[Rfam]
RNA sequence: GCAUGGCAGAAUACUGUGUUCUUUCGUCAAUAAUUUACACAGCCAGACACCAUGCAAAAGUAAAUGUUCAUUUUAAAAUAACUGAUGGUAUGCUAUUUUUACAUAGUGUAUCAUUAAAAGUGAAUACAGAU
Numbered sequence: 001g002c003a004u005g006g007c008a009g010a011a012u013a014c015u016g017u018g019u020u021c022u023u024u025c026g027u028c029a030a031u032a033a034u035u036u037a038c039a040c041a042g043c044c045a046g047a048c049a050c051c052a053u054g055c056a057a058a059a060g061u062a063a064a065u066g067u068u069c070a071u072u073u074u075a076a077a078a079u080a081a082c083u084g085a086u087g088g089u090a091u092g093c094u095a096u097u098u099u100u101a102c103a104u105a106g107u108g109u110a111u112c113a114u115u116a117a118a119a120g121u122g123a124a125u126a127c128a129g130a131u
Stems, first nucleotide, its partner, number of pairs: 001055006014042006067124003071119006086113010
Rfam assigns this 131-nucleotide RNA sequence from Dipodomys ordii to the family "Small nucleolar RNA SNORA15". The base pairs follow the family's consensus structure, which was predicted with RNAfold. The organism belongs to Dipodomys, within Eukaryota. A search with the family's covariance model found it, with a score of 118 bits. A reference for the family is Huttenhofer et al. (2001), "RNomics: an experimental approach that identifies 201 candidates for novel, small, non-messenger RNAs in mouse", EMBO J. The family has 22 seed sequences and 974 matches in Rfam 15.1. ACA15 is a member of the H/ACA class of snoRNA that guide the sites of modification of uridines to pseudouridines.